A member of the RNA family "Small nucleolar RNA snoR100" from Rhododendron williamsianum, 101 nucleotides long.
RNA sequence: CAAUGAAGGAAGCAUGGUAAUGUGCAUAGAAAUUGAAUUGGGUCUCUAGGCCUGUGAUGCCAUUUGGCUUUGAUUUGGGGGCAUGGUCGGUAGCAAAACAG
Numbered sequence: 001c002a003a004u005g006a007a008g009g010a011a012g013c014a015u016g017g018u019a020a021u022g023u024g025c026a027u028a029g030a031a032a033u034u035g036a037a038u039u040g041g042g043u044c045u046c047u048a049g050g051c052c053u054g055u056g057a058u059g060c061c062a063u064u065u066g067g068c069u070u071u072g073a074u075u076u077g078g079g080g081g082c083a084u085g086g087u088c089g090g091u092a093g094c095a096a097a098a099c100a101g
Stems, first nucleotide, its partner, number of pairs: 012025004040084001042082003050074001052072001054068001
The family's consensus secondary structure was predicted with WAR.
Rfam 15.1 lists 1,851 matches to the family in 220 species.
Rfam links the family to the GO terms nucleolus and RNA processing.
Taxonomically the source falls in Rhododendron (Eukaryota, Euphyllophyta, Magnoliopsida, asterids).
Rfam classes the family as an H/ACA-box small nucleolar RNA.